[Rfam]
RNA sequence: CGGCUGUAGCUAAAUCAAAUUUAAUGGCUGAGAAGUUAACUGGCCGGUUGUCGUUUUACAGUCGACUAAUCUGCUUACCGAACUUCUUACAUUC
Numbered sequence: 001c002g003g004c005u006g007u008a009g010c011u012a013a014a015u016c017a018a019a020u021u022u023a024a025u026g027g028c029u030g031a032g033a034a035g036u037u038a039a040c041u042g043g044c045c046g047g048u049u050g051u052c053g054u055u056u057u058a059c060a061g062u063c064g065a066c067u068a069a070u071c072u073g074c075u076u077a078c079c080g081a082a083c084u085u086c087u088u089a090c091a092u093u094c
Stems, first nucleotide, its partner, number of pairs: 030088008042075003046071004050066004
Notes: This 94-nucleotide RNA sequence from Corchorus olitorius belongs to the Rfam family "Small nucleolar RNA snoR109". It is annotated as an H/ACA-box small nucleolar RNA. The family's consensus secondary structure was predicted with WAR. For this family Rfam cites "Experimental RNomics: identification of 140 candidates for small non-messenger RNAs in the plant Arabidopsis thaliana" (Marker et al., Curr Biol, 2002). The source organism's lineage runs through Eukaryota, Spermatophyta, Pentapetalae, malvids and Corchorus.